[Rfam]
Nucleotides: 129
Stems, first nucleotide, its partner, number of pairs: 002056007013045007021037001023034002069122002072119001076115003081111002084104003089099004
Number, partner (000 for none) and nucleotide at each position: 001000g002056g003055g004054g005053u006052g007051u008050g009000c010000u011000c012000a013045g014044a015043g016042c017041a018040g019039g020000a021037g022000c023034c024033c025000g026000a027000a028000a029000a030000a031000a032000u033024g034023g035000c036000u037021c038000c039019u040018c041017u042016g043015u044014u045013u046000a047000u048000a049000a050008c051007a052006c053005a054004c055003c056002c057000g058000a059000c060000a061000g062000g063000c064000a065000u066000c067000u068000g069122g070121g071000u072119u073000c074000a075000u076115u077114g078113u079000g080000a081111c082110a083000a084104g085103g086102g087000a088000c089099a090098c091097a092096a093000a094000a095000c096092u097091u098090g099089u100000a101000g102086c103085c104084u105000u106000c107000c108000u109000a110082u111081g112000a113078a114077c115076a116000a117000a118000u119072a120000c121070c122069c123000u124000a125000c126000a127000c128000a129000u